[Rfam]
RNA sequence: CGCUUAUUUUGCCCAGGCGGAGCUCGACCGCCGGUUCAAGCCAUGAUCGCCUUCAUCGACGAGCAUCGCCAGGCGCACGGGGUCGAGCCGAUCUGUAGACAAUUGCCGAUCGCCCCG
Numbered sequence: 001c002g003c004u005u006a007u008u009u010u011g012c013c014c015a016g017g018c019g020g021a022g023c024u025c026g027a028c029c030g031c032c033g034g035u036u037c038a039a040g041c042c043a044u045g046a047u048c049g050c051c052u053u054c055a056u057c058g059a060c061g062a063g064c065a066u067c068g069c070c071a072g073g074c075g076c077a078c079g080g081g082g083u084c085g086a087g088c089c090g091a092u093c094u095g096u097a098g099a100c101a102a103u104u105g106c107c108g109a110u111c112g113c114c115c116c117g
Stems, first nucleotide, its partner, number of pairs: 016032005078117005089112002092109002095106004
Overview: This 117-nucleotide sequence from Caenispirillum bisanense belongs to the Rfam family "ALIL pseudoknot". Taxonomically the source falls in Caenispirillum (Bacteria, Pseudomonadota, Alphaproteobacteria, Rhodospirillales).